[Rfam]
RNA sequence: UUGUAACACGAACCGGUGCUAAAGGGUCCCUGCCCCAACAACAGCUGUCAGUAGCCGUUGGGCAAGAUCCUUUAGCACCGGUUCGUGUUACGAA
Dot-bracket structure: ..(((((((((((((((((((((((((..(...(((.((.....((...)).....)).)))...))))))))))))))))))))))))))...
RNA: MIR5387 microRNA precursor family
Organism: Sorghum bicolor